[Rfam]
RNA sequence: ACUGUCCUUUUCUUGGGGUUGCACUACUGUCCAGUAAGCUCAUAGUGAGACGGUACUGCUAACACCUACACAGCAUGCCCGCAUCAAUUAGAGCUUUGCUUUACAUUGGUGCAAGUUUUAGAAAA
Numbered sequence: 001a002c003u004g005u006c007c008u009u010u011u012c013u014u015g016g017g018g019u020u021g022c023a024c025u026a027c028u029g030u031c032c033a034g035u036a037a038g039c040u041c042a043u044a045g046u047g048a049g050a051c052g053g054u055a056c057u058g059c060u061a062a063c064a065c066c067u068a069c070a071c072a073g074c075a076u077g078c079c080c081g082c083a084u085c086a087a088u089u090a091g092a093g094c095u096u097u098g099c100u101u102u103a104c105a106u107u108g109g110u111g112c113a114a115g116u117u118u119u120a121g122a123a124a125a
Base pairs, nucleotide, nucleotide: 006018007017008016009015021059022058023057026054027053028052029051030050032049038046039045081112082111083110084109085108086107089103090102091101092100093099094098
RNA: U4atac minor spliceosomal RNA
Organism: Otolemur garnettii